[Rfam]
RNA: Caenorhabditis snoRNA ceN92
Organism: Caenorhabditis japonica
RNA sequence: UAGCACAUAAAUACGGAGACUUUCGUUGUCGAAAAUUUCUAGUCGUAGUGUGCAAUAAAAACCGUUCUACUGCCACACGAGUGCUGGCCUAGAAGCUGCAUUGGUUCCAAAGUUGUUCGAACAAUU
Numbered sequence: 001u002a003g004c005a006c007a008u009a010a011a012u013a014c015g016g017a018g019a020c021u022u023u024c025g026u027u028g029u030c031g032a033a034a035a036u037u038u039c040u041a042g043u044c045g046u047a048g049u050g051u052g053c054a055a056u057a058a059a060a061a062c063c064g065u066u067c068u069a070c071u072g073c074c075a076c077a078c079g080a081g082u083g084c085u086g087g088c089c090u091a092g093a094a095g096c097u098g099c100a101u102u103g104g105u106u107c108c109a110a111a112g113u114u115g116u117u118c119g120a121a122c123a124a125u126u
Stems, first nucleotide, its partner, number of pairs: 003053006015040005021034002024031002069113003077105002080102005086097003
Dot-bracket structure: ..((((((......(((((.((.((....)).)).))))).......))))))...............(((.....((.(((((.(((......)))))))).)).....))).............